Shown here is a 106-nucleotide RNA sequence from Pleurotus eryngii, a member of the family "Small nucleolar RNA Z13/snr52".

RNA sequence: AACAUGCUCUUGAUGAAUUCAUUGCGGAUGUAAAUGUCGAAAGACUGUCAUUCUGAGAGCGCAAAACCAUGUGGAUUUUUCCGUUGCCUUCCUUCUGACUUUUUUC
Numbered sequence: 001a002a003c004a005u006g007c008u009c010u011u012g013a014u015g016a017a018u019u020c021a022u023u024g025c026g027g028a029u030g031u032a033a034a035u036g037u038c039g040a041a042a043g044a045c046u047g048u049c050a051u052u053c054u055g056a057g058a059g060c061g062c063a064a065a066a067c068c069a070u071g072u073g074g075a076u077u078u079u080u081c082c083g084u085u086g087c088c089u090u091c092c093u094u095c096u097g098a099c100u101u102u103u104u105u106c
Base pairs, nucleotide, nucleotide: 004104025083026082027081028080

By type it is a C/D-box small nucleolar RNA. Gene Ontology terms of the family: RNA processing and nucleolus. NCBI's taxonomy places the organism under Eukaryota, Agaricomycotina, Agaricomycetidae, Agaricales, Pleurotus. Rfam 15.1 lists 1,203 matches to the family in 866 species. The family's consensus secondary structure was predicted with PFOLD.